Background
The family of this 45-nucleotide RNA sequence from Rummeliibacillus sp. TYF005 is "PreQ1 (pre queuosine) riboswitch aptamer". A reference for the family is Reader et al. (2004), "Identification of four genes necessary for biosynthesis of the modified nucleoside queuosine", J Biol Chem. A search with the family's covariance model found it, with a score of 42 bits. About the family: This family is a bacterial riboswitch that binds to the metabolite preQ1, an intermediate in the biosynthesis of the modified nucleoside queuosine from GTP. One example of this riboswitch is located in the leader of the Bacillus subtilis ykvJKLM (queCDEF) operon which encodes four genes necessary for queuosine production. PreQ1 binding to the riboswitch aptamer is thought to induce premature transcription termination within the leader to down-regulate expression of these genes.
RNA sequence: GUAGGAGAGGUACUAGAACAACCCUCUAUAAAAAACUAGGGAUAA
Numbered sequence: 001g002u003a004g005g006a007g008a009g010g011u012a013c014u015a016g017a018a019c020a021a022c023c024c025u026c027u028a029u030a031a032a033a034a035a036c037u038a039g040g041g042a043u044a045a
Base pairs, nucleotide, nucleotide: 006027007026008025009024010023016037

Background:
Rfam 15.1 lists 873 matches to the family in 692 species.